[Rfam]
RNA sequence: AUUCUCUCAGCUCUGCUCAGUUGCGCUUGUCCCUGUAGUGUAAUUGGCUUUAACUAGAGAGAGAGAGAGUGACUUGUUCUUUAUGCACGGCAGGCUGGCCUCCUAACAUGGUCUUCCUGUUCCUUAAUGAGGAUCUACAUGC
Numbered sequence: 001a002u003u004c005u006c007u008c009a010g011c012u013c014u015g016c017u018c019a020g021u022u023g024c025g026c027u028u029g030u031c032c033c034u035g036u037a038g039u040g041u042a043a044u045u046g047g048c049u050u051u052a053a054c055u056a057g058a059g060a061g062a063g064a065g066a067g068a069g070u071g072a073c074u075u076g077u078u079c080u081u082u083a084u085g086c087a088c089g090g091c092a093g094g095c096u097g098g099c100c101u102c103c104u105a106a107c108a109u110g111g112u113c114u115u116c117c118u119g120u121u122c123c124u125u126a127a128u129g130a131g132g133a134u135c136u137a138c139a140u141g142c
Base pairs, nucleotide, nucleotide: 002067003066004065005064006063007062008061011059012058013057014056015055019045020044021043022042023041024040025039026038077132078130079129081127083124085122092118093117094116097113098112099111100110
The family of this 142-nucleotide RNA from Xenopus laevis is "Small nucleolar RNA SNORA64/SNORA10 family". This family belongs to the H/ACA class of small nucleolar RNAs (snoRNAs) which act as guides in the the modification of uridines to pseudouridines. A reference for the family is Narayanan et al. (1999), "Nucleolar localization signals of box H/ACA small nucleolar RNAs", EMBO J. Lineage of the source: Eukaryota > Deuterostomia > Vertebrata > Dipnotetrapodomorpha > Xenopus. Clan: SNORA64 clan.